RNA sequence: GGUUGGGCGGCUGGCGCCGCUUUCAAGAAUCGGCUUCAAGGGUGGGAAGUC
Number, nucleotide and partner (000 for none) at each position: 001g000002g000003u026004u025005g024006g021007g020008c019009g018010g017011c016012u000013g000014g000015c000016g011017c010018c009019g008020c007021u006022u000023u000024c005025a004026a003027g000028a000029a000030u000031c000032g051033g050034c049035u048036u047037c046038a000039a000040g000041g000042g000043u000044g000045g000046g037047a036048a035049g034050u033051c032
The family of this 51-nucleotide RNA sequence from Sporobacter termitidis is "Na+ riboswitch aptamer (DUF1646)". Gene Ontology terms of the family: sodium ion binding and regulation of gene expression. The organism belongs to Sporobacter termitidis, within Bacteria.